[Rfam]
Nucleotides: 098
Base pairs, nucleotide, nucleotide: 006086007085008084009083010082011048012047013046014045016042017034019032020031021030054079055078056077057076061072062071063070
Number, partner (000 for none) and nucleotide at each position: 001000g002000c003000a004000u005000c006086u007085c008084g009083u010082u011048g012047g013046g014045g015000g016042u017034g018000u019032c020031a021030g022000g023000c024000g025000a026000u027000u028000g029000c030021c031020u032019g033000u034017c035000u036000g037000a038000g039000a040000u041000c042016a043000u044000a045014c046013u047012c048011c049000a050000u051000g052000a053000a054079c055078c056077u057076g058000a059000a060000a061072u062071g063070u064000a065000u066000c067000a068000u069000a070063a071062c072061a073000g074000c075000g076057u077056a078055g079054g080000g081000a082010a083009a084008c085007g086006a087000g088000g089000a090000u091000u092000g093000u094000a095000a096000a097000a098000g
Shown here is a 98-nucleotide RNA from Mangrovibacterium marinum, a member of the family "TPP riboswitch aptamer (THI element)". The family's consensus secondary structure is taken from published work. Its family is annotated with thiamine pyrophosphate binding in the Gene Ontology. The source organism's lineage runs through Bacteria, Pseudomonadati, Bacteroidota, Bacteroidia and Mangrovibacterium. The match comes from Rfam's covariance-model search (58 bits).